[Rfam]
RNA sequence: CGGGUCGCGCAGUGAUUAUAACACAUUCCUCGUACUGAAUGCCCGUCGUGGCAUGACAGACAAGAAAACACCCAUAGAAUCUGAGCGCU
Numbered sequence: 001c002g003g004g005u006c007g008c009g010c011a012g013u014g015a016u017u018a019u020a021a022c023a024c025a026u027u028c029c030u031c032g033u034a035c036u037g038a039a040u041g042c043c044c045g046u047c048g049u050g051g052c053a054u055g056a057c058a059g060a061c062a063a064g065a066a067a068a069c070a071c072c073c074a075u076a077g078a079a080u081c082u083g084a085g086c087g088c089u
Stems, first nucleotide, its partner, number of pairs: 003089002006087002
The family of this 89-nucleotide RNA sequence from Chlorella variabilis is "Small nucleolar RNA snoR8a".
The base pairs follow the family's consensus structure, which was predicted with WAR.
By type it is a C/D-box small nucleolar RNA.
The match comes from Rfam's covariance-model search (64 bits).